[Rfam]
RNA: Bacterial small subunit ribosomal RNA, nucleotides 898 to 1482
Organism: Microlunatus parietis
RNA sequence: UGACGGGGGCCCGCACAAGCGGCGGAGCAUGCGGAUUAAUUCGAUGCAACGCGAAGAACCUUACCUGGGUUUGACAUAUACCGGAAAGCUGCAGAGAUGUAGCCCCCGCAAGGUCGGUAUACAGGUGGUGCAUGGCUGUCGUCAGCUCGUGUCGUGAGAUGUUGGGUUAAGUCCCGCAACGAGCGCAACCCUCGUCCUAUGUUGCCAGCGGAUAAUGCCGGGGACUCAUAGGAGACUGCCGGGGUCAACUCGGAGGAAGGUGGGGAUGACGUCAAGUCAUCAUGCCCCUUAUGUCCAGGGCUUCACGCAUGCUACAAUGGCUGGUACAAAGAGCUGCGAGACCGCAAGGUUAAGCGAAUCUCAAAAAGCCAGUCUCAGUUCGGAUUGGGGUCUGCAACUCGACCCCAUGAAGUCGGAGUCGCUAGUAAUCGCAGAUCAGCAAUGCUGCGGUGAAUACGUUCCCGGGCCUUGUACACACCGCCCGUCAAGUCAUGAAAGUCGGUAACACCCGAAGCCGGUGGCCCAACCCUAGUGGAGGGAGCCGUCGAAGGUGGGACCGGCGAUUAGGACUAAGUCGUAACAAGG
Numbered sequence: 001u002g003a004c005g006g007g008g009g010c011c012c013g014c015a016c017a018a019g020c021g022g023c024g025g026a027g028c029a030u031g032c033g034g035a036u037u038a039a040u041u042c043g044a045u046g047c048a049a050c051g052c053g054a055a056g057a058a059c060c061u062u063a064c065c066u067g068g069g070u071u072u073g074a075c076a077u078a079u080a081c082c083g084g085a086a087a088g089c090u091g092c093a094g095a096g097a098u099g100u101a102g103c104c105c106c107c108g109c110a111a112g113g114u115c116g117g118u119a120u121a122c123a124g125g126u127g128g129u130g131c132a133u134g135g136c137u138g139u140c141g142u143c144a145g146c147u148c149g150u151g152u153c154g155u156g157a158g159a160u161g162u163u164g165g166g167u168u169a170a171g172u173c174c175c176g177c178a179a180c181g182a183g184c185g186c187a188a189c190c191c192u193c194g195u196c197c198u199a200u201g202u203u204g205c206c207a208g209c210g211g212a213u214a215a216u217g218c219c220g221g222g223g224a225c226u227c228a229u230a231g232g233a234g235a236c237u238g239c240c241g242g243g244g245u246c247a248a249c250u251c252g253g254a255g256g257a258a259g260g261u262g263g264g265g266a267u268g269a270c271g272u273c274a275a276g277u278c279a280u281c282a283u284g285c286c287c288c289u290u291a292u293g294u295c296c297a298g299g300g301c302u303u304c305a306c307g308c309a310u311g312c313u314a315c316a317a318u319g320g321c322u323g324g325u326a327c328a329a330a331g332a333g334c335u336g337c338g339a340g341a342c343c344g345c346a347a348g349g350u351u352a353a354g355c356g357a358a359u360c361u362c363a364a365a366a367a368g369c370c371a372g373u374c375u376c377a378g379u380u381c382g383g384a385u386u387g388g389g390g391u392c393u394g395c396a397a398c399u400c401g402a403c404c405c406c407a408u409g410a411a412g413u414c415g416g417a418g419u420c421g422c423u424a425g426u427a428a429u430c431g432c433a434g435a436u437c438a439g440c441a442a443u444g445c446u447g448c449g450g451u452g453a454a455u456a457c458g459u460u461c462c463c464g465g466g467c468c469u470u471g472u473a474c475a476c477a478c479c480g481c482c483c484g485u486c487a488a489g490u491c492a493u494g495a496a497a498g499u500c501g502g503u504a505a506c507a508c509c510c511g512a513a514g515c516c517g518g519u520g521g522c523c524c525a526a527c528c529c530u531a532g533u534g535g536a537g538g539g540a541g542c543c544g545u546c547g548a549a550g551g552u553g554g555g556a557c558c559g560g561c562g563a564u565u566a567g568g569a570c571u572a573a574g575u576c577g578u579a580a581c582a583a584g585g
Stems, first nucleotide, its partner, number of pairs: 001475002003472003007469007015459002019422005024315001026313008034304002040055004064299007077121002080118005088103006106113002124288002127286004133282002135277003138273001140271002145184006151160003163176004190265004195233007205222002209220003236256002239253005319374007331362003336355002341350003381412001386407007428451007478584001480581001483577002488571004493566003498561006506553004514546001516544004522539003527535002